[Rfam]
RNA sequence: UGGCUAAUGAUGAUAAAACUCUAUAUCUUAGCGGAUUUCAAUGAGAUUUACCAAUGAUGAAUAUUAUAUACAUACACAGAAGCCU
Numbered sequence: 001u002g003g004c005u006a007a008u009g010a011u012g013a014u015a016a017a018a019c020u021c022u023a024u025a026u027c028u029u030a031g032c033g034g035a036u037u038u039c040a041a042u043g044a045g046a047u048u049u050a051c052c053a054a055u056g057a058u059g060a061a062u063a064u065u066a067u068a069u070a071c072a073u074a075c076a077c078a079g080a081a082g083c084c085u
Stems, first nucleotide, its partner, number of pairs: 002084004
RNA: Small nucleolar RNA R11/Z151
Organism: Papaver somniferum